A member of the RNA family "Group II catalytic intron D1-D4-4" from Gemmatimonas sp., 146 nucleotides long. Rfam links the family to the GO term Group II intron splicing. It scores 76 bits against the family's covariance model. Group II introns are found in rRNA, tRNA and mRNA of organelles in fungi, plants and protists, and also in mRNA in bacteria. The literature on the family includes a 2001 paper in Trends Genet by Bonen and Vogel, "The ins and outs of group II introns". Taxonomically the source falls in Gemmatimonas (Bacteria, Pseudomonadati, Gemmatimonadia, Gemmatimonadaceae).
RNA sequence: UAGCCGGUGAAAGUCCGGUCGCGGGAAUUGGCUGUAAGCCCGUGUAGUGAUACUCGACAUCUCUCGGGGGUGACCCCGGAGGUGAAAGCUCGGGAGUAAAAGUCCUUGCCGGAGUAGGGCGAGCAAGUCAGCGGGCCGUAGCAUAA
Numbered sequence: 001u002a003g004c005c006g007g008u009g010a011a012a013g014u015c016c017g018g019u020c021g022c023g024g025g026a027a028u029u030g031g032c033u034g035u036a037a038g039c040c041c042g043u044g045u046a047g048u049g050a051u052a053c054u055c056g057a058c059a060u061c062u063c064u065c066g067g068g069g070g071u072g073a074c075c076c077c078g079g080a081g082g083u084g085a086a087a088g089c090u091c092g093g094g095a096g097u098a099a100a101a102g103u104c105c106u107u108g109c110c111g112g113a114g115u116a117g118g119g120c121g122a123g124c125a126a127g128u129c130a131g132c133g134g135g136c137c138g139u140a141g142c143a144u145a146a
Stems, first nucleotide, its partner, number of pairs: 020044005053094004058084006067075001069074001102120005123139002